RNA sequence: UAGAACUGCUAUUCCAAUGUGUGGAAUGAUGGGGUAACGUCCUGAAACACACACACUAAAGCUACGGCAAGCGAAUGCGAUAAUGCAAACAUCAACAUCGUUUGAAGCCCGUUAAAGUAGGCUGAAGUUCACCCUAACAUUUUAGGAUGAGGAAAGGGAGAUAUUAAUCUUCUGUGAAUGAUAGGUCUGGUGUCUAUAAA
Dot-bracket structure: .................((((((.......((((.....))))....))))))((((......(((((((((((....(((.........)))....)))))))....))))......(((((...(((((((((...((......)).)))...(((((((....)))))))))))))....)))))))))........
Numbered sequence: 001u002a003g004a005a006c007u008g009c010u011a012u013u014c015c016a017a018u019g020u021g022u023g024g025a026a027u028g029a030u031g032g033g034g035u036a037a038c039g040u041c042c043u044g045a046a047a048c049a050c051a052c053a054c055a056c057u058a059a060a061g062c063u064a065c066g067g068c069a070a071g072c073g074a075a076u077g078c079g080a081u082a083a084u085g086c087a088a089a090c091a092u093c094a095a096c097a098u099c100g101u102u103u104g105a106a107g108c109c110c111g112u113u114a115a116a117g118u119a120g121g122c123u124g125a126a127g128u129u130c131a132c133c134c135u136a137a138c139a140u141u142u143u144a145g146g147a148u149g150a151g152g153a154a155a156g157g158g159a160g161a162u163a164u165u166a167a168u169c170u171u172c173u174g175u176g177a178a179u180g181a182u183a184g185g186u187c188u189g190g191u192g193u194c195u196a197u198a199a200a
Stems, first nucleotide, its partner, number of pairs: 018053006031043004054192004064112004068104007079093003119188005127179006133152003139148002156173007